[Rfam]
RNA sequence: UGUUGCUGACAACCAGCACGGGCGUUGAGGAAACUCUGCGCCCGUGCACGCAUGUUGAGGGCAGGAUAAAAGCA
Numbered sequence: 001u002g003u004u005g006c007u008g009a010c011a012a013c014c015a016g017c018a019c020g021g022g023c024g025u026u027g028a029g030g031a032a033a034c035u036c037u038g039c040g041c042c043c044g045u046g047c048a049c050g051c052a053u054g055u056u057g058a059g060g061g062c063a064g065g066a067u068a069a070a071a072g073c074a
Base pairs, nucleotide, nucleotide: 002013016047017046018045019044020043021042022041023040024039027036028035029034
Source information
Shown here is a 74-nucleotide RNA sequence from Brenneria rubrifaciens, a member of the family "tpke11". The family's RNA type in Rfam is small RNA. A search with the family's covariance model found it, with a score of 70 bits. The literature on the family includes a 2003 paper in Nucleic Acids Res by Hershberg et al., "A survey of small RNA-encoding genes in Escherichia coli". Rfam describes the family as follows. In Yersinia located in ICR upstream dnaJ (chaperone)gene. Has temperature responsive RNA structure.